[Rfam]
RNA: Mahella-1 RNA
RNA sequence: AUCGAGCUGCCGUAAAAGCACAACACAAUGUGUUUUCCCUGUUGGGUUGGCAGCAAGCAGCACCAUGCGGUAAGCAGGGGUGUUGCAGAAACGCCGGAACUUAAUACCGGCAAA
Numbered sequence: 001a002u003c004g005a006g007c008u009g010c011c012g013u014a015a016a017a018g019c020a021c022a023a024c025a026c027a028a029u030g031u032g033u034u035u036u037c038c039c040u041g042u043u044g045g046g047u048u049g050g051c052a053g054c055a056a057g058c059a060g061c062a063c064c065a066u067g068c069g070g071u072a073a074g075c076a077g078g079g080g081u082g083u084u085g086c087a088g089a090a091a092c093g094c095c096g097g098a099a100c101u102u103a104a105u106a107c108c109g110g111c112a113a114a
Stems, first nucleotide, its partner, number of pairs: 037046003057086008066076003093111005
Dot-bracket structure: ....................................(((....)))..........((((((((.(((.....)))..))))))))......(((((.........)))))...